[Rfam]
RNA sequence: CAGCCCUUGCUGAAAAUUAGUCGUUCUGGGCUGGCUUAGUAGGUUUAUCUCGAAAAGCUGGUAGGCAAAUAUAAG
Numbered sequence: 001c002a003g004c005c006c007u008u009g010c011u012g013a014a015a016a017u018u019a020g021u022c023g024u025u026c027u028g029g030g031c032u033g034g035c036u037u038a039g040u041a042g043g044u045u046u047a048u049c050u051c052g053a054a055a056a057g058c059u060g061g062u063a064g065g066c067a068a069a070u071a072u073a074a075g
Stems, first nucleotide, its partner, number of pairs: 001012004020066003030062007042051002
Rfam assigns this 75-nucleotide RNA to the family "RT-18 RNA". The family's RNA type in Rfam is small RNA.